Overview
The record is a 73-nucleotide RNA from Aurantiacibacter atlanticus, which matches "tRNA" in Rfam. The family's consensus secondary structure is taken from published work. The source organism's lineage runs through Bacteria, Pseudomonadota, Alphaproteobacteria, Sphingomonadales and Aurantiacibacter.
RNA sequence: GCCGGCUUAGCUCAGUUGGUAGAGCAGUUGAUUUGUAAUCAUCAGGCCGAGGGUUCGAAUCCUUCAGCCGGCA
Number, nucleotide and partner (000 for none) at each position: 001g072002c071003c070004g069005g068006c067007u066008u000009a000010g025011c024012u023013c022014a000015g000016u000017u000018g000019g000020u000021a000022g013023a012024g011025c010026a000027g043028u000029u041030g040031a039032u000033u000034u000035g000036u000037a000038a000039u031040c030041a029042u000043c027044a000045g000046g000047c000048c000049g065050a064051g063052g062053g061054u000055u000056c000057g000058a000059a000060u000061c053062c052063u051064u050065c049066a007067g006068c005069c004070g003071g002072c001073a000